A member of the RNA family "let-7 microRNA precursor family" from Caenorhabditis elegans, 73 nucleotides long. The base pairs follow the family's consensus structure, which was predicted with RNAalifold. The source organism's lineage runs through Eukaryota, Opisthokonta, Eumetazoa, Rhabditoidea and Caenorhabditis. From the family's description: This family represents the microRNAs (miRNA) let-7 and mir-98. let-7 was identified from a study of developmental timing in C. elegans, and was later shown to be part of a much larger class of non-coding RNAs termed miRNAs. It is one of the family's seed sequences. Its Rfam clan is "let-7 microRNA precursor clan".

[Rfam]
RNA sequence: UCCGGUGAGGUAGUAGGUUGUAUAGUUUGGAAUAUUACCACCGGUGAACUAUGCAAUUUUCUACCUUACCGGA
Numbered sequence: 001u002c003c004g005g006u007g008a009g010g011u012a013g014u015a016g017g018u019u020g021u022a023u024a025g026u027u028u029g030g031a032a033u034a035u036u037a038c039c040a041c042c043g044g045u046g047a048a049c050u051a052u053g054c055a056a057u058u059u060u061c062u063a064c065c066u067u068a069c070c071g072g073a
Stems, first nucleotide, its partner, number of pairs: 001073013015059012028040003
Dot-bracket structure: (((((((((((((.((((((((((((.(((.......))).......)))))))))))).)))))))))))))